[Rfam]
RNA: SAM-I/IV (S-adenosyl methionine) riboswitch aptamer
RNA sequence: GAAGGUCAUCAAGAGUUGAGCCGGUGCGCUCAACGCCAACCUGCUCCCGGGCAAGGUGGCGUCCUCGCUGAGGGAUGUGGCCGUUCCGGCAACCAUCGGGUUCCUC
Numbered sequence: 001g002a003a004g005g006u007c008a009u010c011a012a013g014a015g016u017u018g019a020g021c022c023g024g025u026g027c028g029c030u031c032a033a034c035g036c037c038a039a040c041c042u043g044c045u046c047c048c049g050g051g052c053a054a055g056g057u058g059g060c061g062u063c064c065u066c067g068c069u070g071a072g073g074g075a076u077g078u079g080g081c082c083g084u085u086c087c088g089g090c091a092a093c094c095a096u097c098g099g100g101u102u103c104c105u106c
Base pairs, nucleotide, nucleotide: 007077008076009075010074015034016033017032018031019030020029035060036059037058040056041055042054043052044051045050080090081089082088083087